[Rfam]
RNA sequence: AGCUUUGCGCAGUGGGCAGUAUCAUAGCCAAUGAGGUUUAACCGAGGCGUGAUUAUUGCUAGUUGAAAACUUUUCCAAUACCCCGCCAUGAUGACUUGAAAUACAGUCAGCAUUGGCAAUUUUUGACAGUCUCUCAGGAGG
Dot-bracket structure: ....................(((((.(((.....(((...)))..))))))))...............................((((((.(((((........))))).))).)))............((((....))))